[Rfam]
RNA sequence: CGCAAGAGUAGAAGCGUUCACCCGCUGCGCCGAUUCAGGUGCCAGCCGGUCGGAAAUUGCUCUUGGA
Numbered sequence: 001c002g003c004a005a006g007a008g009u010a011g012a013a014g015c016g017u018u019c020a021c022c023c024g025c026u027g028c029g030c031c032g033a034u035u036c037a038g039g040u041g042c043c044a045g046c047c048g049g050u051c052g053g054a055a056a057u058u059g060c061u062c063u064u065g066g067a
Base pairs, nucleotide, nucleotide: 005063006062007061008060009059010058015052018054019053021049022048024046025045026044027043
The family of this 67-nucleotide RNA sequence from Parazoarcus communis is "Xanthine riboswitch aptamer (NMT1 RNA)". NCBI's taxonomy places the organism under Bacteria, Pseudomonadota, Zoogloeaceae, Parazoarcus, Parazoarcus communis. The family's consensus secondary structure is taken from published work. A search with the family's covariance model found it, with a score of 50 bits.